A member of the RNA family "SAM-I/IV (S-adenosyl methionine) riboswitch aptamer", 97 nucleotides long. The family's consensus secondary structure is taken from published work. The sequence is in the family's curated seed alignment.
RNA sequence: AUAGAGCAUUAAGAGCAGGGUUAAAUCCCUCUCCAACCUGCCAACUCCGGCAAGGUGGAAAAAAUGAUGCGGUUAACCAACAAACAUAGGAGUACAA
Numbered sequence: 001a002u003a004g005a006g007c008a009u010u011a012a013g014a015g016c017a018g019g020g021u022u023a024a025a026u027c028c029c030u031c032u033c034c035a036a037c038c039u040g041c042c043a044a045c046u047c048c049g050g051c052a053a054g055g056u057g058g059a060a061a062a063a064a065u066g067a068u069g070c071g072g073u074u075a076a077c078c079a080a081c082a083a084a085c086a087u088a089g090g091a092g093u094a095c096a097a
Base pairs, nucleotide, nucleotide: 006070007069008068009067010066015031017030018029019028020027032059033058034057037055038054039053040051041050042049044093045092046091047090048089072081073080074079